RNA sequence: UUAGAUAAAGCCAAACCUGUCGCAAGACAGGGACGGAAAGCUACGGGUCUUAUCAGUAAGAUAGCCGGGCUGCCUUUU
Numbered sequence: 001u002u003a004g005a006u007a008a009a010g011c012c013a014a015a016c017c018u019g020u021c022g023c024a025a026g027a028c029a030g031g032g033a034c035g036g037a038a039a040g041c042u043a044c045g046g047g048u049c050u051u052a053u054c055a056g057u058a059a060g061a062u063a064g065c066c067g068g069g070c071u072g073c074c075u076u077u078u
Stems, first nucleotide, its partner, number of pairs: 003075002011036002016031006034064001039071004044067003047062003

c-di-GMP-I-GGC riboswitch aptamer: a 78-nucleotide RNA sequence from Desulfonema ishimotonii. The match comes from Rfam's covariance-model search (76 bits). Taxonomically the source falls in Desulfonema (Bacteria, Pseudomonadati, Desulfobacteria, Desulfobacterales).